[Rfam]
This 122-nucleotide RNA from Vibrionales bacterium SWAT-3 belongs to the Rfam family "Phenylalanine leader peptide". The family's consensus secondary structure was predicted with CMfinder. The literature on the family includes a 1978 paper in Proc Natl Acad Sci U S A by Zurawski et al., "Nucleotide sequence of the leader region of the phenylalanine operon of Escherichia coli". Rfam classes the family as a cis-regulatory leader. Gene Ontology term of the family: cellular amino acid metabolic process. NCBI's taxonomy places the organism under Bacteria, Pseudomonadati, Pseudomonadota, Gammaproteobacteria, Vibrionales. It is one of the family's seed sequences.
Nucleotides: 122
Base pairs, nucleotide, nucleotide: 016089017088018087019086021084022083023082024081025080026079027078028077029076030075032073033072034071036069037068040052041051042050043049053061054060055059093116094115095114096113097112098111099110100109101108
Number, partner (000 for none) and nucleotide at each position: 001000g002000c003000a004000a005000a006000c007000u008000c009000a010000a011000u012000c013000u014000u015000u016089g017088u018087u019086u020000a021084u022083u023082u024081u025080u026079g027078a028077c029076u030075u031000c032073u033072u034071u035000u036069u037068u038000c039000u040052u041051c042050c043049g044000u045000a046000a047000a048000u049043c050042g051041g052040a053061g054060g055059c056000u057000a058000a059055g060054u061053c062000g063000u064000u065000u066000u067000a068037g069036a070000a071034a072033a073032a074000c075030a076029a077028g078027u079026c080025a081024a082023a083022a084021a085000c086019g087018a088017a089016c090000a091000a092000g093116a094115a095114g096113c097112c098111u099110c100109c101108c102000a103000c104000a105000c106000u107000a108101g109100g110099g111098a112097g113096g114095c115094u116093u117000u118000u119000u120000u121000a122000u